[Rfam]
Shown here is a 482-nucleotide part of an RNA from Trichinella pseudospiralis, a member of the family "Eukaryotic large subunit ribosomal RNA".

RNA sequence: GACAAGUCGUUGCGAUAGUAAUCCUGCUCAGUACGAGAGGAACCGCGGGAUCAGACAUUUGGUUCAUGCGCUCGGCUGAAAGGCCGGUGGCGCGAAGCUAGCAUCUGCAAGAUUAUGACUGAACGCCUCUAAGUCAGAAUCUUUUCUAGUCAUUGGCAACGAUAAGUUGCGUCCGGACUCGAUGCGAGGAAACGACUAGGCUUUGUUGUGCGUCUUUUUUGCUCAGCGAAGCCGUCAUUAUACCACGGUAGCAGGCAGUUGGGAUAGGUUGCGAAAAAGCAAUUUUUCGAAGUCAGUUGAAUUGAAUCAAACUGCGCUGGCCAUUCCACUGCGAAUGACUACACUCGAAUCUAUUGAAGCACAGCGGUCAGGAUGUCGAACAUUUUGCAGACGACAAAAAUACCGGUUCAGGUGUCGUAAUCAGUAGAGCAGUCAACACACUGCGAUCUGAUGAGACUCAUCCUGGUAAUCGAUUUGCUCGU
Numbered sequence: 001g002a003c004a005a006g007u008c009g010u011u012g013c014g015a016u017a018g019u020a021a022u023c024c025u026g027c028u029c030a031g032u033a034c035g036a037g038a039g040g041a042a043c044c045g046c047g048g049g050a051u052c053a054g055a056c057a058u059u060u061g062g063u064u065c066a067u068g069c070g071c072u073c074g075g076c077u078g079a080a081a082g083g084c085c086g087g088u089g090g091c092g093c094g095a096a097g098c099u100a101g102c103a104u105c106u107g108c109a110a111g112a113u114u115a116u117g118a119c120u121g122a123a124c125g126c127c128u129c130u131a132a133g134u135c136a137g138a139a140u141c142u143u144u145u146c147u148a149g150u151c152a153u154u155g156g157c158a159a160c161g162a163u164a165a166g167u168u169g170c171g172u173c174c175g176g177a178c179u180c181g182a183u184g185c186g187a188g189g190a191a192a193c194g195a196c197u198a199g200g201c202u203u204u205g206u207u208g209u210g211c212g213u214c215u216u217u218u219u220u221g222c223u224c225a226g227c228g229a230a231g232c233c234g235u236c237a238u239u240a241u242a243c244c245a246c247g248g249u250a251g252c253a254g255g256c257a258g259u260u261g262g263g264a265u266a267g268g269u270u271g272c273g274a275a276a277a278a279g280c281a282a283u284u285u286u287u288c289g290a291a292g293u294c295a296g297u298u299g300a301a302u303u304g305a306a307u308c309a310a311a312c313u314g315c316g317c318u319g320g321c322c323a324u325u326c327c328a329c330u331g332c333g334a335a336u337g338a339c340u341a342c343a344c345u346c347g348a349a350u351c352u353a354u355u356g357a358a359g360c361a362c363a364g365c366g367g368u369c370a371g372g373a374u375g376u377c378g379a380a381c382a383u384u385u386u387g388c389a390g391a392c393g394a395c396a397a398a399a400a401u402a403c404c405g406g407u408u409c410a411g412g413u414g415u416c417g418u419a420a421u422c423a424g425u426a427g428a429g430c431a432g433u434c435a436a437c438a439c440a441c442u443g444c445g446a447u448c449u450g451a452u453g454a455g456a457c458u459c460a461u462c463c464u465g466g467u468a469a470u471c472g473a474u475u476u477g478c479u480c481g482u
Base pairs, nucleotide, nucleotide: 006163007162008161009160010159011158012157013156016148017147018146021051022050023049024048025047026046027045052107053106054105055104060100061099062098067094068093069092070091071090072087073086074085075084076083077082109143110142111141116136117135118134119133120132171374172373173372174371176369177368178367179366378480379479381477382476383399384398385397386396387395404472405471406470407469408468410464411463412462414457415456421451422450423449424448426447429444430443431442432441433440
The organism belongs to Trichinella, within Eukaryota.